The family of this 119-nucleotide sequence from Theobroma cacao is "U5 spliceosomal RNA". It scores 87 bits against the family's covariance model. The family's consensus secondary structure is taken from published work.

[Rfam]
RNA sequence: AGCCGUGCAGUGCACACAGAGCGAACUAUUCUUUCGCCUUUUACUAAAGAAUACCGUGUGUGCGUUGCAGACAGCGGCAUACGCCUAUUUUUGGAGGGCUCUUCCUAGCCGGAGGAGCU
Dot-bracket structure: ..((((.(((((((((((........((((((((...........))))))))...)))))))))))......)))).................(..((((((.........)))))))
Numbered sequence: 001a002g003c004c005g006u007g008c009a010g011u012g013c014a015c016a017c018a019g020a021g022c023g024a025a026c027u028a029u030u031c032u033u034u035c036g037c038c039u040u041u042u043a044c045u046a047a048a049g050a051a052u053a054c055c056g057u058g059u060g061u062g063c064g065u066u067g068c069a070g071a072c073a074g075c076g077g078c079a080u081a082c083g084c085c086u087a088u089u090u091u092u093g094g095a096g097g098g099c100u101c102u103u104c105c106u107a108g109c110c111g112g113a114g115g116a117g118c119u
Stems, first nucleotide, its partner, number of pairs: 003077004008067011027053008095119001098118006
It is annotated as a spliceosomal small nuclear RNA.
Lineage of the source: Eukaryota > Magnoliopsida > Gunneridae > malvids > Theobroma.